[Rfam]
RNA sequence: UAACCUUACUUAUGAAAGUAAGCUGAACAAUCAGAAGUUAGCAGAGGUCAUAGUACCUAUCUCGGCGCAAAGAUAGGGAAGGAC
Numbered sequence: 001u002a003a004c005c006u007u008a009c010u011u012a013u014g015a016a017a018g019u020a021a022g023c024u025g026a027a028c029a030a031u032c033a034g035a036a037g038u039u040a041g042c043a044g045a046g047g048u049c050a051u052a053g054u055a056c057c058u059a060u061c062u063c064g065g066c067g068c069a070a071a072g073a074u075a076g077g078g079a080a081g082g083a084c
Stems, first nucleotide, its partner, number of pairs: 001025002005022007038045002047084003056077006